[Rfam]
RNA sequence: UUCUUAUCAAGAGCAGGCGGAGGGAAAAGCCCUAUGAAGCCCGGCAACCGGCAUUUUAUGCACGGUGCUAAAUCUUGCGGAAAUUUAAGUUUCUGAGAGAUGAGAG
Dot-bracket structure: ((((((((....(..(((...(((..[[[)))......))))((((.((.((((...))))..))))))...(]]].((((((......))))))..)))))))))

Rfam assigns this 106-nucleotide RNA from Pristimantibacillus lignocellulolyticus to the family "SAM riboswitch aptamer (S box leader)".
A search with the family's covariance model found it, with a score of 85 bits.
The source organism's lineage runs through Bacteria, Bacillota, Bacilli, Paenibacillaceae and Pristimantibacillus (SeqCode).
The base pairs follow the family's consensus structure, which is taken from published work.